Record summary: The family of this 230-nucleotide RNA sequence from Acanthosepion pharaonis is "Small nucleolar RNA SNORA73 family". It scores 92 bits against the family's covariance model. By type it is an H/ACA-box small nucleolar RNA. From the family's description: U17 (SNORA73A and SNORA73B) also known as E1 belongs to the H/ACA class of small nucleolar RNAs (snoRNAs). On this family, see Enright et al., RNA 1996: "5'ETS rRNA processing facilitated by four small RNAs: U14, E3, U17, and U3".

RNA sequence: CCAACAUGUCUGCAGAUCUUGUUAGAUCUGUUGUGGCAAAUGGGGGCCAAAUCUGUGUAUCCUUAAUGUAAGGUUACUCUGGAGGACAAUUAGGUGUAUUCCCUUUCCACCAUGUUGGAAAUAAAGUUGGCCCCCUGGUUUUGCAGGUGUGGGUCUAACCCAAUAUAUUCCAUAACUUCCCAUAGUCUUUGUGGCUGUUGUUGGGGAGUGAGACCAUAUUGGGUACAUUU
Numbered sequence: 001c002c003a004a005c006a007u008g009u010c011u012g013c014a015g016a017u018c019u020u021g022u023u024a025g026a027u028c029u030g031u032u033g034u035g036g037c038a039a040a041u042g043g044g045g046g047c048c049a050a051a052u053c054u055g056u057g058u059a060u061c062c063u064u065a066a067u068g069u070a071a072g073g074u075u076a077c078u079c080u081g082g083a084g085g086a087c088a089a090u091u092a093g094g095u096g097u098a099u100u101c102c103c104u105u106u107c108c109a110c111c112a113u114g115u116u117g118g119a120a121a122u123a124a125a126g127u128u129g130g131c132c133c134c135c136u137g138g139u140u141u142u143g144c145a146g147g148u149g150u151g152g153g154u155c156u157a158a159c160c161c162a163a164u165a166u167a168u169u170c171c172a173u174a175a176c177u178u179c180c181c182a183u184a185g186u187c188u189u190u191g192u193g194g195c196u197g198u199u200g201u202u203g204g205g206g207a208g209u210g211a212g213a214c215c216a217u218a219u220u221g222g223g224u225a226c227a228u229u230u
Stems, first nucleotide, its partner, number of pairs: 001118007008027003012022004033110004042103004046097001160222007176208006185195003